[Rfam]
A member of the RNA family "BsrF" from Priestia taiwanensis, 114 nucleotides long. Lineage of the source: Bacteria > Bacillati > Bacilli > Caryophanales > Priestia. The family's consensus secondary structure was predicted with WAR. It is annotated as a small RNA. For this family Rfam cites "Novel small RNA-encoding genes in the intergenic regions of Bacillus subtilis" (Saito et al., Gene, 2008).
RNA sequence: GCGAUGAGCUAAUUUGUGUAAGUCGAGGAGCAUGCCGGAAGGUUAAACACGUGAAUGUGGUCACGUGGUUUCUCGCCACAAAACGCAUCAAGACGCCUGCAUAGUGCAGGCGUC
Number, nucleotide and partner (000 for none) at each position: 001g000002c000003g000004a000005u000006g000007a000008g000009c000010u000011a000012a000013u000014u081015u080016g079017u078018g077019u000020a000021a000022g000023u000024c075025g074026a073027g072028g071029a070030g069031c068032a000033u000034g043035c042036c000037g000038g000039a000040a000041g000042g035043u034044u000045a000046a000047a000048c067049a066050c000051g064052u063053g062054a000055a000056u000057g000058u000059g000060g000061u000062c053063a052064c051065g000066u049067g048068g031069u030070u029071u028072c027073u026074c025075g024076c000077c018078a017079c016080a015081a014082a000083a000084c000085g000086c000087a000088u000089c000090a000091a000092g114093a113094c112095g111096c110097c109098u108099g107100c106101a000102u000103a000104g000105u000106g100107c099108a098109g097110g096111c095112g094113u093114c092